[Rfam]
RNA sequence: GCCACUCUGGAAAGCAGUCCCACGCGCGGCCUCGUGCGGCGCGUGACGGCUCACCCACGGUGAAAGGGAUCCACGGGGAUCCCGAAGCUCUCAGGUAACCAGCACAGAGGGGGAGCC
Numbered sequence: 001g002c003c004a005c006u007c008u009g010g011a012a013a014g015c016a017g018u019c020c021c022a023c024g025c026g027c028g029g030c031c032u033c034g035u036g037c038g039g040c041g042c043g044u045g046a047c048g049g050c051u052c053a054c055c056c057a058c059g060g061u062g063a064a065a066g067g068g069a070u071c072c073a074c075g076g077g078g079a080u081c082c083c084g085a086a087g088c089u090c091u092c093a094g095g096u097a098a099c100c101a102g103c104a105c106a107g108a109g110g111g112g113g114a115g116c117c
Stems, first nucleotide, its partner, number of pairs: 002112002005109005016051004053096003057091001060090001062088001066083005

The family of this 117-nucleotide RNA sequence from Georgenia soli is "Glycine riboswitch aptamer". From the family's description: This family represents the bacterial glycine riboswitch. Glycine riboswitches usually consist of two metabolite-binding aptamers domains with similar structures in tandem. The aptamers cooperatively bind glycine to regulate the expression of downstream genes. In Bacillus subtilis, this riboswitch is found upstream of the gcvT operon which controls glycine degradation. A search with the family's covariance model found it, with a score of 34 bits.